[Rfam]
RNA sequence: CUCUCUUCUCUCACCAACAACCUGUGCCAGCGCUCCCGUCCAUCCUCCGGGGUGUGUUCGGUCGACGCGUUGGCAGUUCGUCCGCCCCCAAGGAGCCAUCUUUACUAUGAUGUCAAUUUCCGGACGACAGGUUGGAGAGCGAGUCGGCAGUGGCUAUGAAGCCUGAGUUCGCCGCAAGGUUUGAGCUCGGUGGAUGGCGCUGCCAGGGCGACUGAUUCCUACUCCCUUAUGCUAGGCCGUCGGCCGUUAAUGCUUGGGAAAAACCCAGUUGCCUACAUUU
Numbered sequence: 001c002u003c004u005c006u007u008c009u010c011u012c013a014c015c016a017a018c019a020a021c022c023u024g025u026g027c028c029a030g031c032g033c034u035c036c037c038g039u040c041c042a043u044c045c046u047c048c049g050g051g052g053u054g055u056g057u058u059c060g061g062u063c064g065a066c067g068c069g070u071u072g073g074c075a076g077u078u079c080g081u082c083c084g085c086c087c088c089c090a091a092g093g094a095g096c097c098a099u100c101u102u103u104a105c106u107a108u109g110a111u112g113u114c115a116a117u118u119u120c121c122g123g124a125c126g127a128c129a130g131g132u133u134g135g136a137g138a139g140c141g142a143g144u145c146g147g148c149a150g151u152g153g154c155u156a157u158g159a160a161g162c163c164u165g166a167g168u169u170c171g172c173c174g175c176a177a178g179g180u181u182u183g184a185g186c187u188c189g190g191u192g193g194a195u196g197g198c199g200c201u202g203c204c205a206g207g208g209c210g211a212c213u214g215a216u217u218c219c220u221a222c223u224c225c226c227u228u229a230u231g232c233u234a235g236g237c238c239g240u241c242g243g244c245c246g247u248u249a250a251u252g253c254u255u256g257g258g259a260a261a262a263a264c265c266c267a268g269u270u271g272c273c274u275a276c277a278u279u280u
Base pairs, nucleotide, nucleotide: 018134019133020132021131022130023129024128025127026074027073028072029071030070032068033067034065035064036061037060038059041056042055044052045051082126085123086122092114093113095111097109145202146201147200152198161191162190163189165188166187167186168185169184170183172179173178207273208272209271210270211269212268213267214266223259224258225257226256231253232252235245236244237243238242
Dot-bracket structure: .................(((((((((((((.(((((((..((.((.....))..))..)))..)).)).))))).......(..((.....((.(.(...........).).)).......))..)))))))))..........(((....(........(((.((((((.((....))...)))))))))......).)))....((((((((........((((....((..((((...))))......))..))))......)))))))).......

About this RNA: The record is a 280-nucleotide sequence from Bimuria novae-zelandiae, which matches "A. fumigatus sRNA Afu_309" in Rfam. By type it is a small RNA. It scores 112 bits against the family's covariance model. The base pairs follow the family's consensus structure, which was predicted with WAR.